[Rfam]
RNA sequence: CUGACAGAAGAGAGUGAGCACACACUGACAAUUGUAUAAAGGCGUACACUCGUGUGGUGCGUGCUCACUUCUCUUUCUGUCAG
Numbered sequence: 001c002u003g004a005c006a007g008a009a010g011a012g013a014g015u016g017a018g019c020a021c022a023c024a025c026u027g028a029c030a031a032u033u034g035u036a037u038a039a040a041g042g043c044g045u046a047c048a049c050u051c052g053u054g055u056g057g058u059g060c061g062u063g064c065u066c067a068c069u070u071c072u073c074u075u076u077c078u079g080u081c082a083g
Base pairs, nucleotide, nucleotide: 001083002082003081004080005079006078007077008076009075010073011072012071013069014068015067016066017065018064019063020062021061023059024058025057026056027055
Shown here is an 83-nucleotide sequence from Morus notabilis, a member of the family "mir-156 microRNA precursor family". The organism belongs to Morus, within Eukaryota. For this family Rfam cites "MicroRNAs in plants" (Reinhart et al., Genes Dev, 2002). This family represents the plant microRNA (miRNA) precursor mir-156.